[Rfam]
RNA: Small nucleolar RNA SNORD19
Organism: Nomascus leucogenys
RNA sequence: AAGAAAUGAAGAAACCAAAAUUGGUCUUAGUAUUGAAGUGAAGACACUGAGAUCCAACUCUGAUCUUGCCCUAAAC
Numbered sequence: 001a002a003g004a005a006a007u008g009a010a011g012a013a014a015c016c017a018a019a020a021u022u023g024g025u026c027u028u029a030g031u032a033u034u035g036a037a038g039u040g041a042a043g044a045c046a047c048u049g050a051g052a053u054c055c056a057a058c059u060c061u062g063a064u065c066u067u068g069c070c071c072u073a074a075a076c
Stems, first nucleotide, its partner, number of pairs: 001067004